[Rfam]
RNA sequence: CCACUAUCGCGAGCAGUCGAGAGUCCUGGCUCUAUGACGCUGCAGCAACCUUUCGAGAUUCGGAGCGGGUGCUAAUGCCAGGUUCGAUGGAGG
Numbered sequence: 001c002c003a004c005u006a007u008c009g010c011g012a013g014c015a016g017u018c019g020a021g022a023g024u025c026c027u028g029g030c031u032c033u034a035u036g037a038c039g040c041u042g043c044a045g046c047a048a049c050c051u052u053u054c055g056a057g058a059u060u061c062g063g064a065g066c067g068g069g070u071g072c073u074a075a076u077g078c079c080a081g082g083u084u085c086g087a088u089g090g091a092g093g
Base pairs, nucleotide, nucleotide: 001093002092004090005089006088007087008086013043014042015041016040017039021032022031023030026081027080028079029078044073045072046071047070049069050068051065052064053063054062077085
Dot-bracket structure: ((.(((((....(((((...(((..[[[[)))......)))))((((.((((((.......))))..))))))...(]]]]...)))))).))
This 93-nucleotide RNA from Flaviflexus ciconiae belongs to the Rfam family "SAM riboswitch aptamer (S box leader)".